[Rfam]
RNA: freshwater-2 RNA
RNA sequence: UCGCACAAGGGGUGCGUUUUUAUGCUGUUUAACCAUACCAGCGUAGUAGAUAGAACCUACAUUGGACUUCUUUAAGGAGAAAUAUAAAAUG
Numbered sequence: 001u002c003g004c005a006c007a008a009g010g011g012g013u014g015c016g017u018u019u020u021u022a023u024g025c026u027g028u029u030u031a032a033c034c035a036u037a038c039c040a041g042c043g044u045a046g047u048a049g050a051u052a053g054a055a056c057c058u059a060c061a062u063u064g065g066a067c068u069u070c071u072u073u074a075a076g077g078a079g080a081a082a083u084a085u086a087a088a089a090u091g
Base pairs, nucleotide, nucleotide: 002016003015004014005013006012021045022044023043024042025041026040027039046060047059048058049057